[Rfam]
RNA sequence: UAUCGAUAAUACUAAACCACCUGCGAGGGUGGGGCGGAAAGCCCACGGGUCUCCCCGAGACAGCCGGGUUGCCGAA
Numbered sequence: 001u002a003u004c005g006a007u008a009a010u011a012c013u014a015a016a017c018c019a020c021c022u023g024c025g026a027g028g029g030u031g032g033g034g035c036g037g038a039a040a041g042c043c044c045a046c047g048g049g050u051c052u053c054c055c056c057g058a059g060a061c062a063g064c065c066g067g068g069u070u071g072c073c074g075a076a
Stems, first nucleotide, its partner, number of pairs: 012037002017032006040070004046066003049061005
Source information
This 76-nucleotide RNA sequence from Geobacter pickeringii belongs to the Rfam family "c-di-GMP-I riboswitch aptamer". Rfam's curators write: GEMM was predicted in a large-scale screen for bacterial structured RNA regulatory elements. Genes associated with GEMM are involved in a diverse array of functions, including chemotaxis regulation, signal transduction, secretion and chitin. It scores 50 bits against the family's covariance model. The organism belongs to Geobacter, within Bacteria.